[Rfam]
RNA sequence: UAUGCGCAUGGGGGGAGCUUGGUUUGCCAGGCUGAGAGGCUCCGACCAAUUCGGAGCGACCCCAAUAACCUGAUCUGGGUAAUUCCAGCGUAGGGAUGUUGGUUCUCAAAGUA
Numbered sequence: 001u002a003u004g005c006g007c008a009u010g011g012g013g014g015g016a017g018c019u020u021g022g023u024u025u026g027c028c029a030g031g032c033u034g035a036g037a038g039g040c041u042c043c044g045a046c047c048a049a050u051u052c053g054g055a056g057c058g059a060c061c062c063c064a065a066u067a068a069c070c071u072g073a074u075c076u077g078g079g080u081a082a083u084u085c086c087a088g089c090g091u092a093g094g095g096a097u098g099u100u101g102g103u104u105c106u107c108a109a110a111g112u113a
Stems, first nucleotide, its partner, number of pairs: 008099003011063004017032005039057007069094004075088004